[Rfam]
RNA: Bacterial RNase P class A
Organism: Paraurantiacibacter namhicola
RNA sequence: UCGGGGAGCCGGGCAGCCGCGUGCCUUCGGGCGCGAGGAAAGUCCGGGCUCCACGAAACAAGGGUGGCGGGUAACGCCCGCCCGCAACGGGUCCGCCCGGUGCGAGGGAAAGUGCAACAGAGAGUAGACCGCCUCUCUUGAGAGGUAAGGCUGAAAGGGUGCGGUAAGAGCGCACCGGGGCGCCGGUAACGGGGCCCGCAUGGUAAACCCCACCCGGAGCAAGGCCAAAUAGGGGCCUCGCGCCAGCUUGCUGGCAGGGAUGUUUCGUCCCGAGAGGCCCGGGUUGGCUGCUUGAGCGGCGGAGCAAUCCGUCGCCCAGAUGAAUGGUUGCCGCCGCGGAUACGGUCCGGUUUCGGAUACCGUCCGUGGACACAGAACCCGGCUUACAGGCUCCCCGACGCU
Numbered sequence: 001u002c003g004g005g006g007a008g009c010c011g012g013g014c015a016g017c018c019g020c021g022u023g024c025c026u027u028c029g030g031g032c033g034c035g036a037g038g039a040a041a042g043u044c045c046g047g048g049c050u051c052c053a054c055g056a057a058a059c060a061a062g063g064g065u066g067g068c069g070g071g072u073a074a075c076g077c078c079c080g081c082c083c084g085c086a087a088c089g090g091g092u093c094c095g096c097c098c099g100g101u102g103c104g105a106g107g108g109a110a111a112g113u114g115c116a117a118c119a120g121a122g123a124g125u126a127g128a129c130c131g132c133c134u135c136u137c138u139u140g141a142g143a144g145g146u147a148a149g150g151c152u153g154a155a156a157g158g159g160u161g162c163g164g165u166a167a168g169a170g171c172g173c174a175c176c177g178g179g180g181c182g183c184c185g186g187u188a189a190c191g192g193g194g195c196c197c198g199c200a201u202g203g204u205a206a207a208c209c210c211c212a213c214c215c216g217g218a219g220c221a222a223g224g225c226c227a228a229a230u231a232g233g234g235g236c237c238u239c240g241c242g243c244c245a246g247c248u249u250g251c252u253g254g255c256a257g258g259g260a261u262g263u264u265u266c267g268u269c270c271c272g273a274g275a276g277g278c279c280c281g282g283g284u285u286g287g288c289u290g291c292u293u294g295a296g297c298g299g300c301g302g303a304g305c306a307a308u309c310c311g312u313c314g315c316c317c318a319g320a321u322g323a324a325u326g327g328u329u330g331c332c333g334c335c336g337c338g339g340a341u342a343c344g345g346u347c348c349g350g351u352u353u354c355g356g357a358u359a360c361c362g363u364c365c366g367u368g369g370a371c372a373c374a375g376a377a378c379c380c381g382g383c384u385u386a387c388a389g390g391c392u393c394c395c396c397g398a399c400g401c402u
Stems, first nucleotide, its partner, number of pairs: 001398010011387001012332007020035006040385003044382005049219004058265001060263001062215005067081005082106001083104004107210002112208002114204002129150002131146006158176006177199001178197004183192003223289004233280006257271005296315008